[Rfam]
RNA sequence: CUGACGGGAGGGCAGCGGUGGGACGCUGUCCAGGUAUAGUCAGGUUUCCGCUGGUUUCUUGGGUGUGUCGCCGGGCCCGACGGCUGAUGCG
Numbered sequence: 001c002u003g004a005c006g007g008g009a010g011g012g013c014a015g016c017g018g019u020g021g022g023a024c025g026c027u028g029u030c031c032a033g034g035u036a037u038a039g040u041c042a043g044g045u046u047u048c049c050g051c052u053g054g055u056u057u058c059u060u061g062g063g064u065g066u067g068u069c070g071c072c073g074g075g076c077c078c079g080a081c082g083g084c085u086g087a088u089g090c091g
Base pairs, nucleotide, nucleotide: 001043002042003041004040005039010031011030012029013028014027015026016025017024064091065090066089067088068087070084071083072082073081
RNA: Rhodo-rpoB RNA